[Rfam]
RNA: Acido-Lenti-1 RNA
Organism: Lentimonas sp. CC11
RNA sequence: CCUAGGGCGUUGCCCUAGGCUAACAUGAGUCGCCCCGUUGGGGCU
Numbered sequence: 001c002c003u004a005g006g007g008c009g010u011u012g013c014c015c016u017a018g019g020c021u022a023a024c025a026u027g028a029g030u031c032g033c034c035c036c037g038u039u040g041g042g043g044c045u
Base pairs, nucleotide, nucleotide: 001019002018003017004016005015006014007013008012032044033043034042035041036040